[Rfam]
RNA: glmS glucosamine-6-phosphate activated ribozyme aptamer
RNA sequence: AAGCAAUUUAAAGCGCCUGAACUGUGCUGUGUGCACAGUUGACGAGGAGGAGGUUAUCGAGAUGUUCGGCGGAUGCCUCCCGGUUGCCUGUUACAACCGUAAAGAAGAGCCAAAUCAGUGAGGUGACUCACUGCACAAAAGUUCUUCUGAUAACUGC
Numbered sequence: 001a002a003g004c005a006a007u008u009u010a011a012a013g014c015g016c017c018u019g020a021a022c023u024g025u026g027c028u029g030u031g032u033g034c035a036c037a038g039u040u041g042a043c044g045a046g047g048a049g050g051a052g053g054u055u056a057u058c059g060a061g062a063u064g065u066u067c068g069g070c071g072g073a074u075g076c077c078u079c080c081c082g083g084u085u086g087c088c089u090g091u092u093a094c095a096a097c098c099g100u101a102a103a104g105a106a107g108a109g110c111c112a113a114a115u116c117a118g119u120g121a122g123g124u125g126a127c128u129c130a131c132u133g134c135a136c137a138a139a140a141g142u143u144c145u146u147c148u149g150a151u152a153a154c155u156g157c
Stems, first nucleotide, its partner, number of pairs: 020040008049080005057069004081099006104147006116133007